[Rfam]
Annotation
Rfam assigns this 110-nucleotide sequence from Ferrimonas sediminicola to the family "Glycine riboswitch aptamer". From the family's description: This family represents the bacterial glycine riboswitch. A search with the family's covariance model found it, with a score of 62 bits.

RNA sequence: GGACGGGCCUCUGGAGAGUUCCAUUGACUUGGACGCCGAAGGCGCAAGCCCCGUACUCCCCCUCGGGAGGCGGUGGUCAAACGCUCAGGCAAAAGGACAGGGUGCAAGAU
Dot-bracket structure: .....(..(((((......((((......)))).(((((..(((...((..........................))....))))).))).......)))))..).....
Lineage of the source: Bacteria > Gammaproteobacteria > Alteromonadales > Ferrimonadaceae > Ferrimonas.